[Rfam]
RNA sequence: UCAUCAGAUACGCCAAAUUCCUGGUACCUGGGAAGCGGGGGAACCAUAUUACGGGUGAAUUGAUCUCGCAACAGAGUGGUCAUAGGGGAACCUUCUACCGAAUCCUUAAGCUAACCUCGCAGGCAUUGGAAGGAGUUUAU
Number, nucleotide and partner (000 for none) at each position: 001u000002c000003a000004u000005c000006a000007g000008a000009u000010a000011c000012g124013c123014c122015a000016a000017a000018u034019u033020c032021c031022u030023g029024g028025u000026a000027c000028c024029u023030g022031g021032g020033a019034a018035g120036c119037g118038g117039g116040g115041g000042a000043a000044c000045c000046a000047u000048a000049u000050u000051a000052c000053g105054g104055g103056u000057g000058a000059a000060u000061u082062g081063a080064u079065c000066u000067c000068g000069c000070a000071a000072c000073a000074g000075a000076g000077u000078g000079g064080u063081c062082a061083u000084a000085g099086g098087g000088g096089a000090a000091c000092c000093u000094u000095c000096u088097a000098c086099c085100g000101a000102a000103u055104c054105c053106u000107u000108a000109a000110g000111c000112u000113a000114a000115c040116c039117u038118c037119g036120c035121a000122g014123g013124c012125a000126u000127u000128g000129g000130a000131a000132g000133g000134a000135g000136u000137u000138u000139a000140u000
A member of the RNA family "c-di-AMP riboswitch aptamer (ydaO/yuaA leader)" from Paenibacillus sp. J45TS6, 140 nucleotides long. About the family: This family represents a conserved RNA structure found upstream of the ydaO and yuaA genes in Bacillus subtilis and related genes in other bacteria.